[Rfam]
RNA sequence: UUGCCCAUCGGGGCUGUGGAUACCAGGUUUUAUUAUU
Numbered sequence: 001u002u003g004c005c006c007a008u009c010g011g012g013g014c015u016g017u018g019g020a021u022a023c024c025a026g027g028u029u030u031u032a033u034u035a036u037u
Stems, first nucleotide, its partner, number of pairs: 003014004017026001019024001
Dot-bracket structure: ..((((....))))..(.(....).)...........
RNA: XIST RNA A repeat